[Rfam]
RNA: c-di-GMP-I riboswitch aptamer
RNA sequence: AGCAGACAAAGGCAAACUUGGCGAAAGCCAAGGACGCAACAUUUCCGGUCUAAAGGCUCCGGCCCAAGAUAGCGGGAUUACCUCA
Numbered sequence: 001a002g003c004a005g006a007c008a009a010a011g012g013c014a015a016a017c018u019u020g021g022c023g024a025a026a027g028c029c030a031a032g033g034a035c036g037c038a039a040c041a042u043u044u045c046c047g048g049u050c051u052a053a054a055g056g057c058u059c060c061g062g063c064c065c066a067a068g069a070u071a072g073c074g075g076g077a078u079u080a081c082c083u084c085a
Base pairs, nucleotide, nucleotide: 012037013036017032018031019030020029021028022027041078042077043076045075046074047073048070049069050068055064056063057062